Overview:
The record is a 322-nucleotide part of an RNA from Candidatus Calditenuaceae archaeon HR02, which matches "Archaeal small subunit ribosomal RNA" in Rfam. Clan: SSU clan. A search with the family's covariance model found it, with a score of 1377 bits.
RNA sequence: GGCCUAAAGCGCCCGUAGCCGGCCUGGUGUGUCCCUCGUUAAAUCCACAGGCCUAACCUGUGGGCUGCGGGGGAUACUACCAGGCUUGGGGGUGGGAGAGGCGCUCGGUAUUCCCGGGGUAGGGGUAAAAUCCUCUGAUCCCGGGAGGACCACCAGUGGCGAAGGCGGAGCGCCAGAACACGCCCGACGGUGAGGGGCGAAAGCUGGGGGAGCAAACGGGAUUAGAUACCCCGGUAGUCCCAGCUGUAAACGAUGCGGGCCAGGUGCCGGGACGGCUACGAGCCGCCCCGGUGCCGAAGGGAAGCCAUUAAGCCCGCCGCCU
Numbered sequence: 001g002g003c004c005u006a007a008a009g010c011g012c013c014c015g016u017a018g019c020c021g022g023c024c025u026g027g028u029g030u031g032u033c034c035c036u037c038g039u040u041a042a043a044u045c046c047a048c049a050g051g052c053c054u055a056a057c058c059u060g061u062g063g064g065c066u067g068c069g070g071g072g073g074a075u076a077c078u079a080c081c082a083g084g085c086u087u088g089g090g091g092g093u094g095g096g097a098g099a100g101g102c103g104c105u106c107g108g109u110a111u112u113c114c115c116g117g118g119g120u121a122g123g124g125g126u127a128a129a130a131u132c133c134u135c136u137g138a139u140c141c142c143g144g145g146a147g148g149a150c151c152a153c154c155a156g157u158g159g160c161g162a163a164g165g166c167g168g169a170g171c172g173c174c175a176g177a178a179c180a181c182g183c184c185c186g187a188c189g190g191u192g193a194g195g196g197g198c199g200a201a202a203g204c205u206g207g208g209g210g211a212g213c214a215a216a217c218g219g220g221a222u223u224a225g226a227u228a229c230c231c232c233g234g235u236a237g238u239c240c241c242a243g244c245u246g247u248a249a250a251c252g253a254u255g256c257g258g259g260c261c262a263g264g265u266g267c268c269g270g271g272a273c274g275g276c277u278a279c280g281a282g283c284c285g286c287c288c289c290g291g292u293g294c295c296g297a298a299g300g301g302a303a304g305c306c307a308u309u310a311a312g313c314c315c316g317c318c319g320c321c322u
Base pairs, nucleotide, nucleotide: 001321002320003319009318011198012197013196014195016192018191019190020189022085023084024083025082026081027080028079031077032074033073034072035071036070037069038068039067045063046062047061048060049059050058051057089185090184091183092181093180094179100174101173102172103171104170105169106168107151108150111147112146113145114144115143116142117141118140122133123132124131159166160165203244204243205242206241207240208239212238213237217233218232219231220230255317256316257315258314259313260312263295264294265293266292267291268290269289270288271287273285274284275283276282299306300305
Lineage of the source: Archaea > Thermoproteati > Nitrososphaerota > Candidatus Caldarchaeales > Candidatus Calditenuaceae. The base pairs follow the family's consensus structure, which is taken from published work. Gene Ontology terms of the family: structural constituent of ribosome and ribosome. The literature on the family includes a 2001 paper in Science by Yusupov et al., "Crystal structure of the ribosome at 5.5 A resolution".